Record summary
The family of this 80-nucleotide RNA from Anopheles sinensis is "mir-2796 microRNA precursor family".

[Rfam]
RNA sequence: CUUUGGAGGAAGGGGUUUCUUUCGGCCUCCAGCAGCAUUCGACCGAACUGUAGGCCGGCGGAAACUACUUGCCUCCGUCG
Numbered sequence: 001c002u003u004u005g006g007a008g009g010a011a012g013g014g015g016u017u018u019c020u021u022u023c024g025g026c027c028u029c030c031a032g033c034a035g036c037a038u039u040c041g042a043c044c045g046a047a048c049u050g051u052a053g054g055c056c057g058g059c060g061g062a063a064a065c066u067a068c069u070u071g072c073c074u075c076c077g078u079c080g
Stems, first nucleotide, its partner, number of pairs: 005076004011070003014066007022058007030050003

Its family is annotated with RISC complex and miRNA-mediated post-transcriptional gene silencing in the Gene Ontology. NCBI's taxonomy places the organism under Eukaryota, Arthropoda, Eumetabola, Laticorn, Myzorhynchus. It scores 76 bits against the family's covariance model.